The family of this 100-nucleotide RNA sequence from Daucus carota is "Small nucleolar RNA Z161/Z228".

RNA sequence: GAUUCAGUUGAUGAUAUGGAUGUCAAAUUCUCACGACGGUCGUCUGAAGAGGCACUUUUGUAGUGUCUGCUGAUUGAGAUUUAUAUCCUUUCUGAUGAUU
Numbered sequence: 001g002a003u004u005c006a007g008u009u010g011a012u013g014a015u016a017u018g019g020a021u022g023u024c025a026a027a028u029u030c031u032c033a034c035g036a037c038g039g040u041c042g043u044c045u046g047a048a049g050a051g052g053c054a055c056u057u058u059u060g061u062a063g064u065g066u067c068u069g070c071u072g073a074u075u076g077a078g079a080u081u082u083a084u085a086u087c088c089u090u091u092c093u094g095a096u097g098a099u100u
Base pairs, nucleotide, nucleotide: 001100002099003098004097053065054064055063
Its family is annotated with RNA processing and nucleolus in the Gene Ontology. The family is grouped with related families in Rfam's "SNORD35 clan". NCBI's taxonomy places the organism under Eukaryota, Embryophyta, Spermatophyta, campanulids, Daucus carota.